The record is a 68-nucleotide RNA from Zhihengliuella flava, which matches "Actino-pnp RNA" in Rfam. Pairs were carried over by alignment from the consensus structure, which is taken from published work. It is annotated as a cis-regulatory element.

RNA sequence: CGCGGUCCUCGGUAGUGGUUUACGGAUCCGCUGCGCGCGGAAGCCGUGGGCCUCGAUCGAAGACCGGG
Numbered sequence: 001c002g003c004g005g006u007c008c009u010c011g012g013u014a015g016u017g018g019u020u021u022a023c024g025g026a027u028c029c030g031c032u033g034c035g036c037g038c039g040g041a042a043g044c045c046g047u048g049g050g051c052c053u054c055g056a057u058c059g060a061a062g063a064c065c066g067g068g
Stems, first nucleotide, its partner, number of pairs: 001068001003066005009060005017052009027042001029040001